Record summary:
A member of the RNA family "c-di-AMP riboswitch aptamer (ydaO/yuaA leader)" from Rhodococcus triatomae, 167 nucleotides long.
RNA sequence: GCCGGGUCACCGCCUAAUCGGGCACCCGGGACCACGGGUGCCGAGCCGGGAACCCACGUUUCCACUGGGGUGAAUCCCGCCGGGCCGUCUCGUACGGACCGGGGGGUAGGGCUGAUCUUCCCAGCCCGAACCCGUCAGCUAACUCGGUCGGCGGACGAAGAGGAAGA
Dot-bracket structure: ..........((((...(((.....................)))((((((....((.........))(((.....(((.........................)))..((((...........))))...))).........)))))).))))..............
Rfam links the family to the GO terms regulation of gene expression and cyclic-di-AMP binding. A search with the family's covariance model found it, with a score of 69 bits.